[Rfam]
RNA sequence: AAAUAACCAGGCGAUGGGGCCCGCCGUAGAACCGCCGGUCAGGCUAAUAGCUCCUACCAACUU
Dot-bracket structure: .........[[[[..(((((.]]]]........(((.....))).....))))).........

Source information
Shown here is a 63-nucleotide RNA sequence from Desulfoscipio geothermicus, a member of the family "Fluoride riboswitch aptamer (crcB RNA motif)". Taxonomically the source falls in Desulfoscipio geothermicus (Bacteria, Bacillati, Eubacteriales, Desulfoscipio).